[Rfam]
RNA sequence: AUCUCUAAUGAUGCAAUACUUUCGUUCUCCUGAGCUUUAUAGUGCUGAAAAAAUUUGGAGACCUGAGCUGAAGAGUU
Numbered sequence: 001a002u003c004u005c006u007a008a009u010g011a012u013g014c015a016a017u018a019c020u021u022u023c024g025u026u027c028u029c030c031u032g033a034g035c036u037u038u039a040u041a042g043u044g045c046u047g048a049a050a051a052a053a054u055u056u057g058g059a060g061a062c063c064u065g066a067g068c069u070g071a072a073g074a075g076u077u
Stems, first nucleotide, its partner, number of pairs: 003075004
Rfam assigns this 77-nucleotide sequence from Tripterygium wilfordii to the family "Small nucleolar RNA Z159/U59". Clan: SNORD59 clan. The source organism's lineage runs through Eukaryota, Embryophyta, eudicotyledons, Celastrales and Tripterygium. Gene Ontology terms of the family: nucleolus and RNA processing. For this family Rfam cites "The high diversity of snoRNAs in plants: identification and comparative study of 120 snoRNA genes from Oryza sativa" (Chen et al., Nucleic Acids Res, 2003). Rfam classes the family as a C/D-box small nucleolar RNA.